[Rfam]
RNA sequence: CUUCACCGAACCCAGCCACAGCGGCCGACCCUCAGGCCGGUCCUGACCAUAGGUCGCCAGCAGCGCCUGCGCCUC
Numbered sequence: 001c002u003u004c005a006c007c008g009a010a011c012c013c014a015g016c017c018a019c020a021g022c023g024g025c026c027g028a029c030c031c032u033c034a035g036g037c038c039g040g041u042c043c044u045g046a047c048c049a050u051a052g053g054u055c056g057c058c059a060g061c062a063g064c065g066c067c068u069g070c071g072c073c074u075c
Stems, first nucleotide, its partner, number of pairs: 015025003031071001033069001038065002043060003047056001049054001
RNA: ASpks TB sRNA